[Rfam]
RNA: c-di-GMP-I-GGC riboswitch aptamer
Organism: Sideroxydans sp. CL21
RNA sequence: ACCUGCAAGGGCAAACCCGCCGAAAGACGGGGACGCAAAGCUACCGGGCUAAAGGACAUGUUCCUAUUCGACUACUCGUCGAGUGCCAGCGGGGCCGCCAGGC
Numbered sequence: 001a002c003c004u005g006c007a008a009g010g011g012c013a014a015a016c017c018c019g020c021c022g023a024a025a026g027a028c029g030g031g032g033a034c035g036c037a038a039a040g041c042u043a044c045c046g047g048g049c050u051a052a053a054g055g056a057c058a059u060g061u062u063c064c065u066a067u068u069c070g071a072c073u074a075c076u077c078g079u080c081g082a083g084u085g086c087c088a089g090c091g092g093g094g095c096c097g098c099c100a101g102g103c
Stems, first nucleotide, its partner, number of pairs: 011036002016031004021026001034089001040095003044092003047087003